[Rfam]
RNA: t44 RNA
RNA sequence: CCGCCCAUUUAACCAACCCUCACAUGGGUCGUCACGCGCGUCCGGGUGCUCCGAAAGGGGUUGACGCGCGGGGCCCAUGGCGGAAAAAC
Numbered sequence: 001c002c003g004c005c006c007a008u009u010u011a012a013c014c015a016a017c018c019c020u021c022a023c024a025u026g027g028g029u030c031g032u033c034a035c036g037c038g039c040g041u042c043c044g045g046g047u048g049c050u051c052c053g054a055a056a057g058g059g060g061u062u063g064a065c066g067c068g069c070g071g072g073g074c075c076c077a078u079g080g081c082g083g084a085a086a087a088a089c
Stems, first nucleotide, its partner, number of pairs: 023079008035070008048061005